[Rfam]
RNA sequence: AGGCUCAGCUGGUUGAAAUGGGUCAAAUUGUGUUUAAAUAUUUGGUCCCCUUCAACCAGCUGUAGUUG
Numbered sequence: 001a002g003g004c005u006c007a008g009c010u011g012g013u014u015g016a017a018a019u020g021g022g023u024c025a026a027a028u029u030g031u032g033u034u035u036a037a038a039u040a041u042u043u044g045g046u047c048c049c050c051u052u053c054a055a056c057c058a059g060c061u062g063u064a065g066u067u068g
Stems, first nucleotide, its partner, number of pairs: 003066003007061011020048009
RNA: mir-133 microRNA precursor family
Organism: Cimex lectularius